A member of the RNA family "mir-9242 microRNA precursor family" from Myotis lucifugus, 64 nucleotides long. Gene Ontology terms of the family: RISC complex and miRNA-mediated post-transcriptional gene silencing. The family has 2 seed sequences and 940 matches in Rfam 15.1. Pairs were carried over by alignment from the consensus structure, which was predicted with RNAalifold.
Nucleotides: 064
Base pairs, nucleotide, nucleotide: 001064002063003062004061005060006059007058008057009056010055011054012053013052014051015050016049017048019046020045021044022043023042024041025040026039029036030035
Number, partner (000 for none) and nucleotide at each position: 001064g002063g003062c004061c005060u006059c007058c008057c009056u010055c011054u012053g013052u014051g015050g016049g017048g018000a019046g020045a021044u022043u023042g024041a025040u026039c027000u028000g029036g030035g031000g032000g033000c034000c035030c036029u037000g038000u039026g040025a041024u042023c043022a044021a045020u046019c047000c048017c049016c050015c051014u052013g053012c054011a055010g056009a057008g058007g059006g060005a061004g062003g063002c064001c